[Rfam]
RNA sequence: GUGUGUGUGUGUGACACACACACACAGUGUGUGUGUGUAAGAUGCUGUGUGUGUGUGACACACACACACAGU
Numbered sequence: 001g002u003g004u005g006u007g008u009g010u011g012u013g014a015c016a017c018a019c020a021c022a023c024a025c026a027g028u029g030u031g032u033g034u035g036u037g038u039a040a041g042a043u044g045c046u047g048u049g050u051g052u053g054u055g056u057g058a059c060a061c062a063c064a065c066a067c068a069c070a071g072u
Stems, first nucleotide, its partner, number of pairs: 003069005009063005015057012
The record is a 72-nucleotide sequence from Silurus meridionalis, which matches "mir-1421 microRNA precursor family" in Rfam. Lineage of the source: Eukaryota > Chordata > Vertebrata > Siluridae > Silurus. The match comes from Rfam's covariance-model search (52 bits).